[Rfam]
RNA sequence: CCUGCGGACCGGGCCCCUCUGUCGACGGCGUUACGCCAUCGUCAUGUCGGACCGCAUCG
Numbered sequence: 001c002c003u004g005c006g007g008a009c010c011g012g013g014c015c016c017c018u019c020u021g022u023c024g025a026c027g028g029c030g031u032u033a034c035g036c037c038a039u040c041g042u043c044a045u046g047u048c049g050g051a052c053c054g055c056a057u058c059g
Stems, first nucleotide, its partner, number of pairs: 006053002009050004023041003027037003
Rfam assigns this 59-nucleotide RNA sequence from Sphingobium cloacae to the family "terC RNA". The family's consensus secondary structure is taken from published work. It scores 54 bits against the family's covariance model. Rfam classes the family as a cis-regulatory element. NCBI's taxonomy places the organism under Bacteria, Pseudomonadota, Sphingomonadales, Sphingobiaceae, Sphingobium.